[Rfam]
RNA sequence: UGAGAAAAGUAGAAGUGAGAGCUUCUCGCCUUGCGACUUAGGUUGUCUGGCCCUAACAUGUCAAAUUCCUAUGGAAUAUUAUGUGUGCGGGCUUGAUUUAUCAAGUCCGCUUUCGUUUUUCUCU
Numbered sequence: 001u002g003a004g005a006a007a008a009g010u011a012g013a014a015g016u017g018a019g020a021g022c023u024u025c026u027c028g029c030c031u032u033g034c035g036a037c038u039u040a041g042g043u044u045g046u047c048u049g050g051c052c053c054u055a056a057c058a059u060g061u062c063a064a065a066u067u068c069c070u071a072u073g074g075a076a077u078a079u080u081a082u083g084u085g086u087g088c089g090g091g092c093u094u095g096a097u098u099u100a101u102c103a104a105g106u107c108c109g110c111u112u113u114c115g116u117u118u119u120u121c122u123c124u
Stems, first nucleotide, its partner, number of pairs: 011026006028051003033046005087110009
RNA: Ribosomal protein L20 leader